[Rfam]
RNA: c-di-AMP riboswitch aptamer (ydaO/yuaA leader)
Organism: Planomicrobium sp. CPCC 101110
RNA sequence: ACCUUUUAAUCGCUGAAUCUUUCUUGAGCGGGGGAACCACAAUAGAUAGGACUUUUUCUAUCUCGGGGUGAAUCUUACUUUGUAAGAAGGGAUACUCUCAAUCCCUAAUCCGGCAGCUAACCUCGUAAGCGUUAUUUUGUAUUUCG
Numbered sequence: 001a002c003c004u005u006u007u008a009a010u011c012g013c014u015g016a017a018u019c020u021u022u023c024u025u026g027a028g029c030g031g032g033g034g035a036a037c038c039a040c041a042a043u044a045g046a047u048a049g050g051a052c053u054u055u056u057u058c059u060a061u062c063u064c065g066g067g068g069u070g071a072a073u074c075u076u077a078c079u080u081u082g083u084a085a086g087a088a089g090g091g092a093u094a095c096u097c098u099c100a101a102u103c104c105c106u107a108a109u110c111c112g113g114c115a116g117c118u119a120a121c122c123u124c125g126u127a128a129g130c131g132u133u134a135u136u137u138u139g140u141a142u143u144u145c146g
Stems, first nucleotide, its partner, number of pairs: 011131004018027002028126006038065001066111003074086004089105004
Dot-bracket structure: ..........((((...((......))((((((....(..........................)(((.....((((.....))))..((((.........))))...))).........)))))).))))...............